[Rfam]
RNA: Small nucleolar RNA snoR74
Organism: Coffea arabica
RNA sequence: GAAAAAGCAGGGGCCUCUUGUCGAUUACUGUGAAUGGGUCUCUCGUAAACUUCAGGAAAAUAAAACUUGGCAUUGUUAUUGGGUGAACCUUUUGAGCUUACAAUAGAAAGUUUAUUAGAAAUGAUGUGUCAGAA
Dot-bracket structure: ....(((...((.(((...................))).))........))).................((((((((......(((((.(.................).))))).....)))))))).......